[Rfam]
RNA: U7 small nuclear RNA
RNA sequence: AAAUAUUACAGCUCUUUUUAGAAUUUGUCUAGCACCCUUUCUAGUUUUUGCCAGAAAGUCCCU
Dot-bracket structure: ....................................((((((.((....)).)))))).....
Numbered sequence: 001a002a003a004u005a006u007u008a009c010a011g012c013u014c015u016u017u018u019u020a021g022a023a024u025u026u027g028u029c030u031a032g033c034a035c036c037c038u039u040u041c042u043a044g045u046u047u048u049u050g051c052c053a054g055a056a057a058g059u060c061c062c063u
Stems, first nucleotide, its partner, number of pairs: 037058006044051002